Annotation:
A member of the RNA family "Guanidine-I riboswitch aptamer" from Hansschlegelia beijingensis, 108 nucleotides long. Taxonomically the source falls in Hansschlegelia (Bacteria, Pseudomonadati, Alphaproteobacteria, Hyphomicrobiales). About the family: This family represents a conserved RNA structure found upstream of the ykkC and yxkD genes in Bacillus subtilis and related genes in other bacteria. The function of this family is unclear although it has been suggested that it may function to switch on efflux pumps and detoxification systems in response to harmful environmental molecules.

RNA sequence: UGAGUUGGCGGCUAGGGUUCCGCGUCUGAUCCAGACGGCUGGUCCGAGAGCUGCCGCCUUGCCGGGAGACAUCCGGCAGGGACACGGCGGGGCAAAAUCCCGGGAGAC
Numbered sequence: 001u002g003a004g005u006u007g008g009c010g011g012c013u014a015g016g017g018u019u020c021c022g023c024g025u026c027u028g029a030u031c032c033a034g035a036c037g038g039c040u041g042g043u044c045c046g047a048g049a050g051c052u053g054c055c056g057c058c059u060u061g062c063c064g065g066g067a068g069a070c071a072u073c074c075g076g077c078a079g080g081g082a083c084a085c086g087g088c089g090g091g092g093c094a095a096a097a098u099c100c101c102g103g104g105a106g107a108c
Base pairs, nucleotide, nucleotide: 007055008054009053010052011051012050015045016044020042021041022039023037024036025035026034027033028032057081058080059079060078061077062076063075064074083103085106089101090100091099